Shown here is an 82-nucleotide RNA from Liparis tanakae, a member of the family "mir-15 microRNA precursor family". On this family, see Lagos-Quintana et al., Science 2001: "Identification of novel genes coding for small expressed RNAs". Gene Ontology terms of the family: miRNA-mediated post-transcriptional gene silencing and RISC complex. This family represents the related mir-15a and mir-15b sequences. In humans miR-15a and miR-16 are clustered within 0.5 kb at 13q14. This region has been shown to be deleted in more than half of B cell chronic lymphocytic leukaemias (CLL). It scores 67 bits against the family's covariance model. The base pairs follow the family's consensus structure, which was predicted with RNAalifold. The organism belongs to Liparis, within Eukaryota.
RNA sequence: UCUGGCGAUGCUGUAGCAGCACGGAAUGGUUUGUGGUGACACUGAGAUGCAGGCCAUGCUGUGCUGCCGCAGUAACGCCUGA
Numbered sequence: 001u002c003u004g005g006c007g008a009u010g011c012u013g014u015a016g017c018a019g020c021a022c023g024g025a026a027u028g029g030u031u032u033g034u035g036g037u038g039a040c041a042c043u044g045a046g047a048u049g050c051a052g053g054c055c056a057u058g059c060u061g062u063g064c065u066g067c068c069g070c071a072g073u074a075a076c077g078c079c080u081g082a
Stems, first nucleotide, its partner, number of pairs: 001082002004079003013070002016067009026057010